The family of this 132-nucleotide RNA sequence from Oryzias latipes is "Small nucleolar RNA SNORA9". From the family's description: ACA9 is a member of the H/ACA class of snoRNA that guide the sites of modification of uridines to pseudouridines. The base pairs follow the family's consensus structure, which was predicted with PFOLD. Rfam's curators put it in the seed alignment. Lineage of the source: Eukaryota > Eurypterygia > Acanthomorphata > Atherinomorphae > Oryzias. The family's RNA type in Rfam is H/ACA-box small nucleolar RNA.
[Rfam]
RNA sequence: GUGCAGAUCAUCCAGCGAGGCUAGGCCUGCAGUGGCUCCGCCCUCUCCUGUUGGUCUGCUAUAGUAAUGGAGGUGGUUUGAGGCCCUGUUGUGGUUCUGCACAGCUGGGUUAUAGGUAAACCUCCGACAUGU
Numbered sequence: 001g002u003g004c005a006g007a008u009c010a011u012c013c014a015g016c017g018a019g020g021c022u023a024g025g026c027c028u029g030c031a032g033u034g035g036c037u038c039c040g041c042c043c044u045c046u047c048c049u050g051u052u053g054g055u056c057u058g059c060u061a062u063a064g065u066a067a068u069g070g071a072g073g074u075g076g077u078u079u080g081a082g083g084c085c086c087u088g089u090u091g092u093g094g095u096u097c098u099g100c101a102c103a104g105c106u107g108g109g110u111u112a113u114a115g116g117u118a119a120a121c122c123u124c125c126g127a128c129a130u131g132u
Stems, first nucleotide, its partner, number of pairs: 003059005018044003024037004069125005084109003088105002091102003